Background:
GRIK4 3 prime UTR element: a 92-nucleotide sequence from Tupaia belangeri.

[Rfam]
RNA sequence: UAGCCCCGGCGGCCCCGGACACGUGGAGGCCAGGUGGGGAGGCGGGAGGGGCCGGGCCGGGGCCGCUGUCCGCGCCAGCCCGGACUUGUACA
Numbered sequence: 001u002a003g004c005c006c007c008g009g010c011g012g013c014c015c016c017g018g019a020c021a022c023g024u025g026g027a028g029g030c031c032a033g034g035u036g037g038g039g040a041g042g043c044g045g046g047a048g049g050g051g052c053c054g055g056g057c058c059g060g061g062g063c064c065g066c067u068g069u070c071c072g073c074g075c076c077a078g079c080c081c082g083g084a085c086u087u088g089u090a091c092a
Stems, first nucleotide, its partner, number of pairs: 003052005011031004
The family's consensus secondary structure was predicted with CMfinder.